[Rfam]
RNA sequence: UAGAUAGGAGUCGGCGACCCAAUGGGUAUGCCGAUUUCCCACAUAAUGACCUCCGGAAUGAGCGGUAUCAGAGCAGCAGGGGAUCUUGUUGCAAGGAUGC
Dot-bracket structure: ......(..((((((((((.....))).)))))))..)..................................(((((.((....)).)))))........
The record is a 100-nucleotide RNA from Methanosalsum zhilinae, which matches "Pyrrolysine insertion sequence mtbB" in Rfam. It is annotated as a cis-regulatory element. On this family, see Theil Have et al., BMC Bioinformatics 2013: "Effects of using coding potential, sequence conservation and mRNA structure conservation for predicting pyrroly-sine containing genes". Rfam links the family to the GO term pyrrolysine incorporation.